[Rfam]
RNA sequence: UUUUUACAUUUAGAGUAGAGAUUAACUCUCGCCAACCUGCUUUUAUCGGUAAGGUGGCAAAUUAAUGUGGCUUUAUGCAAAUAUAAAUUUGCAAAGCAACGUCAAAGGGUAAAUCU
Numbered sequence: 001u002u003u004u005u006a007c008a009u010u011u012a013g014a015g016u017a018g019a020g021a022u023u024a025a026c027u028c029u030c031g032c033c034a035a036c037c038u039g040c041u042u043u044u045a046u047c048g049g050u051a052a053g054g055u056g057g058c059a060a061a062u063u064a065a066u067g068u069g070g071c072u073u074u075a076u077g078c079a080a081a082u083a084u085a086a087a088u089u090u091g092c093a094a095a096g097c098a099a100c101g102u103c104a105a106a107g108g109g110u111a112a113a114u115c116u
Stems, first nucleotide, its partner, number of pairs: 006068005015030001017029004031058003036054003039050003043111001046108002070097004
Dot-bracket structure: .....(((((....(.((((.....)))))(((..((((((.[..[[))).))).))).....))))).((((....................)))).........]]..].....

A member of the RNA family "SAM-I/IV (S-adenosyl methionine) riboswitch aptamer", 116 nucleotides long. Pairs were carried over by alignment from the consensus structure, which is taken from published work.